Rfam assigns this 294-nucleotide RNA sequence to the family "Archaeal RNase P". Rfam's curators put it in the seed alignment. Clan: RNaseP clan. Pairs were carried over by alignment from the consensus structure, which is taken from published work. Rfam describes the family as follows. Ribonuclease P (RNase P) is a ubiquitous endoribonuclease, found in archaea, bacteria and eukarya as well as chloroplasts and mitochondria. On this family, see Frank and Pace, Annu Rev Biochem 1998: "Ribonuclease P: unity and diversity in a tRNA processing ribozyme". Gene Ontology terms of the family: ribonuclease P activity, multimeric ribonuclease P complex and tRNA processing.
RNA sequence: GGGAGCAGGAGGGUCACUGACAGUGUACGACACUGAGGAAAGUCCCCUCUCCAAGAUGCAAGCGGUCCGAUUAACGUCGGAGAUCUGGGAAGGUCGGCUCUGUAAUAGAAACGAACUACAUCAGUCGAGUACAGUGAUUCCGGAAGGAAGAGGUUGUCUGAAUGUAGAUGGAACGAGCAACCCCGCUGGAGCAAGUCCAAGCAGUCCCGUAUGGCAUCAACAGGGACAGGUAGGAUGCUAAGUUGAAUGUGACCAGCUGAAAAGUGAACAGAAAGGGGCUUACUCCCUGCACCC
Dot-bracket structure: (((.(((((((((((((...(((((.....)))))....[[[.[[[[[((((..[.[[..((((((((((......)))))(((((....)))))((...(((............(((((((((.(............((......)).......).)))).))))).........))).)))))))))))...((((.....(((((.........]].].))))).....))))............))))))...................]]]]]]]].)).))))).)))
Numbered sequence: 001g002g003g004a005g006c007a008g009g010a011g012g013g014u015c016a017c018u019g020a021c022a023g024u025g026u027a028c029g030a031c032a033c034u035g036a037g038g039a040a041a042g043u044c045c046c047c048u049c050u051c052c053a054a055g056a057u058g059c060a061a062g063c064g065g066u067c068c069g070a071u072u073a074a075c076g077u078c079g080g081a082g083a084u085c086u087g088g089g090a091a092g093g094u095c096g097g098c099u100c101u102g103u104a105a106u107a108g109a110a111a112c113g114a115a116c117u118a119c120a121u122c123a124g125u126c127g128a129g130u131a132c133a134g135u136g137a138u139u140c141c142g143g144a145a146g147g148a149a150g151a152g153g154u155u156g157u158c159u160g161a162a163u164g165u166a167g168a169u170g171g172a173a174c175g176a177g178c179a180a181c182c183c184c185g186c187u188g189g190a191g192c193a194a195g196u197c198c199a200a201g202c203a204g205u206c207c208c209g210u211a212u213g214g215c216a217u218c219a220a221c222a223g224g225g226a227c228a229g230g231u232a233g234g235a236u237g238c239u240a241a242g243u244u245g246a247a248u249g250u251g252a253c254c255a256g257c258u259g260a261a262a263a264g265u266g267a268a269c270a271g272a273a274a275g276g277g278g279c280u281u282a283c284u285c286c287c288u289g290c291a292c293c294c
Stems, first nucleotide, its partner, number of pairs: 001294003005290005010284002012254006021035005040281003044278005049191004055221001057219002061187005066081005082095005096182002101179003116167005121161004126156001139148002195236004204227005